[Rfam]
RNA sequence: GUAUGUGUGUGGAUGGUGUUUAGGGACAGGUGUAUUUGCCUGUGUGUGGAUGGUGUUCAGCACCAAGGACAGAUAUGUUUGUGU
Numbered sequence: 001g002u003a004u005g006u007g008u009g010u011g012g013a014u015g016g017u018g019u020u021u022a023g024g025g026a027c028a029g030g031u032g033u034a035u036u037u038g039c040c041u042g043u044g045u046g047u048g049g050a051u052g053g054u055g056u057u058c059a060g061c062a063c064c065a066a067g068g069a070c071a072g073a074u075a076u077g078u079u080u081g082u083g084u
Stems, first nucleotide, its partner, number of pairs: 001074002004071003014065007022057002024045001026043007
mir-2060 microRNA precursor family: an 84-nucleotide RNA sequence from Branchiostoma lanceolatum.
Pairs were carried over by alignment from the consensus structure, which was predicted with RNAalifold.
NCBI's taxonomy places the organism under Eukaryota, Eumetazoa, Bilateria, Cephalochordata, Branchiostoma.
The match comes from Rfam's covariance-model search (70 bits).